RNA sequence: UCCUCGUCACAACGGCUUCCUGGCGUGACGACCGGUACCUAAUGGAGCG
Numbered sequence: 001u002c003c004u005c006g007u008c009a010c011a012a013c014g015g016c017u018u019c020c021u022g023g024c025g026u027g028a029c030g031a032c033c034g035g036u037a038c039c040u041a042a043u044g045g046a047g048c049g
Stems, first nucleotide, its partner, number of pairs: 004031007013022002015048003019045002
Dot-bracket structure: ...(((((((..(([[[.[[))..)))))))............]]]]].
The family of this 49-nucleotide RNA sequence from Salipiger aestuarii is "SAM/SAH riboswitch aptamer". Gene Ontology terms of the family: S-adenosylmethionine metabolic process and regulation of gene expression. The match comes from Rfam's covariance-model search (54 bits). The literature on the family includes a 2019 paper in Nucleic Acids Res by Weickhmann et al., "The structure of the SAM/SAH-binding riboswitch".